Shown here is a 120-nucleotide sequence from Desulfoscipio gibsoniae, a member of the family "Molybdenum/Tungsten riboswitch aptamer (Moco RNA motif)". Rfam links the family to the GO terms molybdenum ion binding, tungstate binding and regulation of gene expression.
RNA sequence: CAAUUGCAUAUGCUCCGAGUCAGGUUUGUCUAAGGUAACAGCUAUGAUGGCCUGGCCGAUAGGGUUUGUCGGGAAACCGGCAGGCCUCCCAACGCGGAAAGGAGUACAGUAUAAUACUUU
Numbered sequence: 001c002a003a004u005u006g007c008a009u010a011u012g013c014u015c016c017g018a019g020u021c022a023g024g025u026u027u028g029u030c031u032a033a034g035g036u037a038a039c040a041g042c043u044a045u046g047a048u049g050g051c052c053u054g055g056c057c058g059a060u061a062g063g064g065u066u067u068g069u070c071g072g073g074a075a076a077c078c079g080g081c082a083g084g085c086c087u088c089c090c091a092a093c094g095c096g097g098a099a100a101g102g103a104g105u106a107c108a109g110u111a112u113a114a115u116a117c118u119u120u
Stems, first nucleotide, its partner, number of pairs: 004113001011106006019056008028048003034043003062087011088097002
The family has 160 seed sequences and 1,248 matches in Rfam 15.1. Lineage of the source: Bacteria > Bacillati > Eubacteriales > Desulfallaceae > Desulfoscipio gibsoniae.